[Rfam]
RNA sequence: CAACCCUACGGAGUGCUCAGGUCCGCCGCAUCUCCUGGGUCCGUGGGGUUUGGCCGGUGGGUGAGCGUCGCGGGAGGCCUCCCCGCCCGUUCCCCGCCGGCCAGCCUA
Number, nucleotide and partner (000 for none) at each position: 001c000002a000003a049004c048005c047006c046007u045008a044009c043010g042011g000012a000013g000014u000015g000016c039017u038018c037019a036020g035021g034022u000023c000024c000025g000026c000027c000028g000029c000030a000031u000032c000033u000034c021035c020036u019037g018038g017039g016040u000041c000042c010043g009044u008045g007046g006047g005048g004049u003050u000051u103052g102053g101054c100055c099056g098057g097058u096059g095060g094061g093062u000063g000064a000065g000066c000067g000068u000069c000070g000071c000072g000073g000074g000075a000076g000077g000078c000079c000080u000081c000082c000083c000084c000085g000086c000087c000088c000089g000090u000091u000092c000093c061094c060095c059096g058097c057098c056099g055100g054101c053102c052103a051104g000105c000106c000107u000108a000
A member of the RNA family "EcpR1" from Xanthobacter sp. SG618, 108 nucleotides long.
Pairs were carried over by alignment from the consensus structure, which was predicted with WAR.
By type it is a small RNA.
A search with the family's covariance model found it, with a score of 87 bits.
Rfam's curators write: Perviously named SmelC291, SmrC10, or Sra33. According to its overproduction phenotype it was renamed Elongated Cell Phenotype RNA1. Induced by stress,EcpR1 negatively regulates cell cycle master regulatory genes dnaA and gcrA at post-transcriptional level by base pairing between its strongly conserved GC-rich loop and the target mRNAs. It's regulation is hfq-independent but requires RNase E to regulate dnaA.
The literature on the family includes a 2012 paper in RNA Biol by Wilms et al., "Deep sequencing uncovers numerous small RNAs on all four replicons of the plant pathogen Agrobacterium tumefaciens".
NCBI's taxonomy places the organism under Bacteria, Pseudomonadota, Alphaproteobacteria, Xanthobacteraceae, Xanthobacter.